The record is a 216-nucleotide part of an RNA from Octopus sinensis, which matches "Eukaryotic large subunit ribosomal RNA" in Rfam.
RNA sequence: CGGAUAGAGCCUUGACGCUUUGCGUUACAGUUGGGACGCAAAGCAGCUGUAAUGAGUGUUCUAACUGGUUGCUAGUUUGAAUGUGCCCUUUUGAUGGCUGUGUAUGCUGUUUAUUGUUAGGGUAAUGAUUCUAGCAGCUUGUUGGUGAGUACUGAGGAUUAGCUUUUGGAUGAUUAACAUGCAUGGGUGUUCUAUCCGACCCGUCUUGAAACACGG
Dot-bracket structure: ((((((((((((....((((((((((........))))))))))...(((.(..........................................................................................................................).)))......)).))))))))))..((((........))))